This 168-nucleotide RNA sequence from Firmicutes bacterium AF22-6AC belongs to the Rfam family "Clostridiales-1 RNA". It is annotated as a small RNA. The match comes from Rfam's covariance-model search (132 bits).

[Rfam]
Nucleotides: 168
Stems, first nucleotide, its partner, number of pairs: 001168007010068002016062007026051003030047001031044005072124003077119003082114004090107007127158007138148002141145001
Number, partner (000 for none) and nucleotide at each position: 001168u002167g003166a004165u005164g006163c007162c008000a009000g010068g011067g012000g013000a014000a015000a016062a017061a018060g019059g020058u021057c022056u023000a024000a025000a026051c027050c028049c029000u030047c031044a032043u033042g034041a035040g036000c037000u038000u039000g040035c041034u042033c043032a044031u045000a046000u047030g048000u049028g050027g051026g052000a053000g054000a055000a056022a057021g058020a059019c060018u061017u062016u063000u064000u065000g066000a067011c068010c069000c070000g071000c072124c073123c074122c075000g076000a077119u078118a079117u080000g081000a082114g083113c084112a085111u086000a087000a088000a089000a090107g091106u092105g093104g094103g095102a096101u097000g098000a099000u100000a101096a102095u103094c104093c105092c106091a107090c108000g109000a110000u111085a112084u113083g114082c115000g116000a117079a118078u119077a120000g121000a122074g123073g124072g125000u126000a127158g128157g129156a130155u131154u132153g133152c134000g135000a136000g137000a138148g139147u140000g141145c142000a143000u144000a145141g146000a147139a148138c149000g150000a151000a152133g153132c154131a155130a156129u157128c158127c159000g160000u161000a162007g163006g164005c165004a166003u167002c168001a